RNA: Guanidine-II riboswitch aptamer (mini-ykkC)
RNA sequence: UGCGUGGGACGGCCCGCGCCACUACGGUUUGUAUCGGGGACGACCCCA
Number, nucleotide and partner (000 for none) at each position: 001u000002g019003c018004g017005u016006g015007g014008g013009a000010c000011g000012g000013c008014c007015c006016g005017c004018g003019c002020c000021a000022c000023u000024a000025c000026g000027g000028u000029u000030u000031g000032u000033a000034u000035c000036g047037g046038g045039g044040a000041c000042g000043a000044c039045c038046c037047c036048a000